[Rfam]
RNA sequence: AUUGGUUCUAACUCAAUUUAGUAAACUCAACAGAUAUUAAACUGACCGAGUGAUUUGUUUUUUUAAUGGCGGGCUGCUUCCUUUUUAGGAAUUUGAUUUAUUUCAAACAGCAGAUUACAGAGAAAAAACAUAGCUUAAAUCCUGAUUAAUGGAGUUUACUCAAAUCAGUUAUUAGAAUUAGUGU
Numbered sequence: 001a002u003u004g005g006u007u008c009u010a011a012c013u014c015a016a017u018u019u020a021g022u023a024a025a026c027u028c029a030a031c032a033g034a035u036a037u038u039a040a041a042c043u044g045a046c047c048g049a050g051u052g053a054u055u056u057g058u059u060u061u062u063u064u065a066a067u068g069g070c071g072g073g074c075u076g077c078u079u080c081c082u083u084u085u086u087a088g089g090a091a092u093u094u095g096a097u098u099u100a101u102u103u104c105a106a107a108c109a110g111c112a113g114a115u116u117a118c119a120g121a122g123a124a125a126a127a128a129c130a131u132a133g134c135u136u137a138a139a140u141c142c143u144g145a146u147u148a149a150u151g152g153a154g155u156u157u158a159c160u161c162a163a164a165u166c167a168g169u170u171a172u173u174a175g176a177a178u179u180a181g182u183g184u
Stems, first nucleotide, its partner, number of pairs: 054132001056130009067119002074113004080089003092107005
Notes:
The family of this 184-nucleotide sequence from Apibacter adventoris is "Bacteroidales-1 6S-Bacteroidales RNA suggested". The literature on the family includes a 2020 paper in Nat Commun by Ryan et al., "A high-resolution transcriptome map identifies small RNA regulation of metabolism in the gut microbe Bacteroides thetaiotaomicron". Rfam describes the family as follows. Bacteroidales-1 was first reported in a comparative genomics-based approach of genome and metagenome sequences from Weinberg et al. 2010 In a high-resolution transcriptome map study of Bacteroides thetaiotaomicron, Ryan et al. 2020 report this sRNA as 6S RNA homologue of Bacteroides, in the study they obtain evidence of small product RNAs (pRNAs) related to 6S function. It is annotated as a small RNA.